[Rfam]
RNA sequence: GGACCUGUAGCUCAACUGGAUAGAGCACUACACUACGGAUGUAACGGUUGGGGGUUCGAAUCCCUCCAGGUUCA
Numbered sequence: 001g002g003a004c005c006u007g008u009a010g011c012u013c014a015a016c017u018g019g020a021u022a023g024a025g026c027a028c029u030a031c032a033c034u035a036c037g038g039a040u041g042u043a044a045c046g047g048u049u050g051g052g053g054g055u056u057c058g059a060a061u062c063c064c065u066c067c068a069g070g071u072u073c074a
Stems, first nucleotide, its partner, number of pairs: 001073007010026004029043004050066005
Rfam assigns this 74-nucleotide sequence from Candidatus Amoebophilus asiaticus to the family "tRNA". The base pairs follow the family's consensus structure, which is taken from published work. Rfam links the family to the GO term triplet codon-amino acid adaptor activity. The source organism's lineage runs through Bacteria, Bacteroidota, Cytophagia, Cytophagales and Candidatus Amoebophilus asiaticus.